About this RNA: The family of this 122-nucleotide RNA sequence from Cupriavidus metallidurans is "Burkholderia RNA 11". A reference for the family is Ramos et al. (2013), "Experimental identification of small non-coding regulatory RNAs in the opportunistic human pathogen Burkholderia cenocepacia J2315", Genomics. Rfam links the family to the GO term protein binding.
RNA sequence: GCAACCUUAUGCUCGCGCGCGAGCGCCGCGUGGUGUUCCUGAGCCUGCUCGGUAUUUCGUGGCUCUGGUUCCUCGGGGCCACGUUCCUGACCUCGUUCUUCAGCUUCGCCAAGGACGUGCUG
Numbered sequence: 001g002c003a004a005c006c007u008u009a010u011g012c013u014c015g016c017g018c019g020c021g022a023g024c025g026c027c028g029c030g031u032g033g034u035g036u037u038c039c040u041g042a043g044c045c046u047g048c049u050c051g052g053u054a055u056u057u058c059g060u061g062g063c064u065c066u067g068g069u070u071c072c073u074c075g076g077g078g079c080c081a082c083g084u085u086c087c088u089g090a091c092c093u094c095g096u097u098c099u100u101c102a103g104c105u106u107c108g109c110c111a112a113g114g115a116c117g118u119g120c121u122g
Stems, first nucleotide, its partner, number of pairs: 011048002015044001018041002021038006051121005057115002060112001062110001065103001067099002071095001077092002080089002083087001
It scores 58 bits against the family's covariance model. By type it is a small RNA. Pairs were carried over by alignment from the consensus structure, which was predicted with RNAfold.